A member of the RNA family "Glycine riboswitch aptamer" from Ornithinibacillus halophilus, 105 nucleotides long. The organism belongs to Ornithinibacillus, within Bacteria.

[Rfam]
RNA sequence: AUGAUUACAAGGGGAGAGUUUAUAAAUUCCUAUAUAAGGAAUUUAUAACGCCGAAGGAGCAAGCGGGAUUGCGAAUCUCUCAGGCAAAAAGACUCUUGUAGGACG
Number, nucleotide and partner (000 for none) at each position: 001a000002u000003g000004a000005u000006u100007a099008c098009a097010a096011g095012g094013g093014g000015a000016g000017a000018g000019u000020u048021u047022a046023u045024a044025a043026a042027u041028u040029c039030c000031u000032a000033u000034a000035u000036a000037a000038g000039g029040a028041a027042u026043u025044u024045a023046u022047a021048a020049c000050g085051c084052c083053g081054a080055a000056g000057g079058a078059g077060c000061a000062a000063g072064c071065g000066g000067g000068a000069u000070u000071g064072c063073g000074a000075a000076u000077c059078u058079c057080u054081c053082a000083g052084g051085c050086a000087a000088a000089a000090a000091g000092a000093c013094u012095c011096u010097u009098g008099u007100a006101g000102g000103a000104c000105g000